Description: Small nucleolar RNA SNORD79: an 80-nucleotide RNA sequence from Chrysemys picta. It is annotated as a C/D-box small nucleolar RNA. The literature on the family includes a 2002 paper in Mol Cell Biol by Galardi et al., "Purified box C/D snoRNPs are able to reproduce site-specific 2'-O-methylation of target RNA in vitro". Rfam links the family to the GO terms nucleolus and RNA processing. The family's consensus secondary structure was predicted with PFOLD. The family is grouped with related families in Rfam's "SNORD74 clan". From the family's description: snoRNA U79 or Z22 is found in intron 7 of the gas5 gene in humans and is also present in mice.
[Rfam]
RNA sequence: UACUGUUAAUGAUGAUUUUGGUGUAAACAAUGGGAAUCUCUCUGAAAGAGAAUGAGGAGGACUCUGAUGCUGAAACAGUA
Number, nucleotide and partner (000 for none) at each position: 001u080002a079003c078004u077005g076006u075007u074008a000009a000010u000011g000012a000013u000014g000015a000016u000017u000018u000019u000020g000021g000022u000023g000024u000025a000026a000027a000028c000029a000030a000031u000032g000033g000034g000035a000036a000037u000038c000039u000040c000041u000042c000043u000044g000045a000046a000047a000048g000049a000050g000051a000052a000053u000054g000055a000056g000057g000058a000059g000060g000061a000062c000063u000064c000065u000066g000067a000068u000069g000070c000071u000072g000073a000074a007075a006076c005077a004078g003079u002080a001